[Rfam]
RNA sequence: CCUGCCCCAGCUCGUGUUGCAGGGUGGCUGCAGUGCCACCUCUGUGUCAUUCGGUGGCAGACAGUGACAGGCGAGGUCUUCCCUGGUGCUCUGAGCCCUGUGAGCUCUCAGGAUUGCUCAACAACCUGACACU
Numbered sequence: 001c002c003u004g005c006c007c008c009a010g011c012u013c014g015u016g017u018u019g020c021a022g023g024g025u026g027g028c029u030g031c032a033g034u035g036c037c038a039c040c041u042c043u044g045u046g047u048c049a050u051u052c053g054g055u056g057g058c059a060g061a062c063a064g065u066g067a068c069a070g071g072c073g074a075g076g077u078c079u080u081c082c083c084u085g086g087u088g089c090u091c092u093g094a095g096c097c098c099u100g101u102g103a104g105c106u107c108u109c110a111g112g113a114u115u116g117c118u119c120a121a122c123a124a125c126c127u128g129a130c131a132c133u
Stems, first nucleotide, its partner, number of pairs: 002060005007054002010051001014047002019045004023040006066130001068128004073119003080113003084110003088105004
RNA: Small nucleolar RNA SNORA17